[Rfam]
RNA: Selenocysteine insertion sequence 1
RNA sequence: GUCACCGAAUGAUCUGCUCUGGUCAAAUCCUUCUAUGCCAGCCAGGGUGGUGAUGACCCGUGAC
Numbered sequence: 001g002u003c004a005c006c007g008a009a010u011g012a013u014c015u016g017c018u019c020u021g022g023u024c025a026a027a028u029c030c031u032u033c034u035a036u037g038c039c040a041g042c043c044a045g046g047g048u049g050g051u052g053a054u055g056a057c058c059c060g061u062g063a064c
Base pairs, nucleotide, nucleotide: 001064002063003062004061005060014050015049016048017047018046019045020044021043022042023041029037031035